Shown here is an 88-nucleotide RNA from Paenalicyclobacillus macrosporangiidus, a member of the family "c-di-GMP-I riboswitch aptamer".
RNA sequence: ACCGCAUCAGGGCAAAUCAACGGAAACGUUGAGACGCAAAGCCACGGGUCUACGGACGCGCGCCGUCUAUGAUCGCCGGGUUGCCGCA
Numbered sequence: 001a002c003c004g005c006a007u008c009a010g011g012g013c014a015a016a017u018c019a020a021c022g023g024a025a026a027c028g029u030u031g032a033g034a035c036g037c038a039a040a041g042c043c044a045c046g047g048g049u050c051u052a053c054g055g056a057c058g059c060g061c062g063c064c065g066u067c068u069a070u071g072a073u074c075g076c077c078g079g080g081u082u083g084c085c086g087c088a
Stems, first nucleotide, its partner, number of pairs: 012037002017032006040082004045078003048073003055067004
Record summary: Pairs were carried over by alignment from the consensus structure, which is taken from published work.